[Rfam]
RNA: c-di-AMP riboswitch aptamer (ydaO/yuaA leader)
RNA sequence: GCCACGCGGGAGUCUACCCAGGUAGGGGCGGGGGACCCAGGUUCUCCGGGCGGCGAGUGAUCGUCGUCCUAGGGGUGUAGUUCCCACGUCGGUGGGGACCGGGUGAACUCCAGCCCGACCCGACAGCUCACCUCGCAGGCAUCGGAGGACAUACGU
Numbered sequence: 001g002c003c004a005c006g007c008g009g010g011a012g013u014c015u016a017c018c019c020a021g022g023u024a025g026g027g028g029c030g031g032g033g034g035a036c037c038c039a040g041g042u043u044c045u046c047c048g049g050g051c052g053g054c055g056a057g058u059g060a061u062c063g064u065c066g067u068c069c070u071a072g073g074g075g076u077g078u079a080g081u082u083c084c085c086a087c088g089u090c091g092g093u094g095g096g097g098a099c100c101g102g103g104u105g106a107a108c109u110c111c112a113g114c115c116c117g118a119c120c121c122g123a124c125a126g127c128u129c130a131c132c133u134c135g136c137a138g139g140c141a142u143c144g145g146a147g148g149a150c151a152u153a154c155g156u
Stems, first nucleotide, its partner, number of pairs: 001140003007025001028136006038072001073121003081098004101116004
Dot-bracket structure: (((...(.................)..((((((....(.................................)(((.....((((..........))))..((((........))))..))).........)))))).)))................